[Rfam]
RNA sequence: UUAACUCGAAUUUGUAUGCAGUUGGAAUAGCGCCCCUAGCGGCGAACGCAGGGAAACGUUGCAAAUCCAUACAAAUUUGAGUUA
Numbered sequence: 001u002u003a004a005c006u007c008g009a010a011u012u013u014g015u016a017u018g019c020a021g022u023u024g025g026a027a028u029a030g031c032g033c034c035c036c037u038a039g040c041g042g043c044g045a046a047c048g049c050a051g052g053g054a055a056a057c058g059u060u061g062c063a064a065a066u067c068c069a070u071a072c073a074a075a076u077u078u079g080a081g082u083u084a
Stems, first nucleotide, its partner, number of pairs: 008078009018068001020066001022064003026060003034052002039047001

Notes
This 84-nucleotide RNA from Bombyx mori belongs to the Rfam family "mir-2807 microRNA precursor family". Taxonomically the source falls in Bombyx (Eukaryota, Metazoa, Bilateria, Altocrustacea). Gene Ontology terms of the family: miRNA-mediated post-transcriptional gene silencing and RISC complex.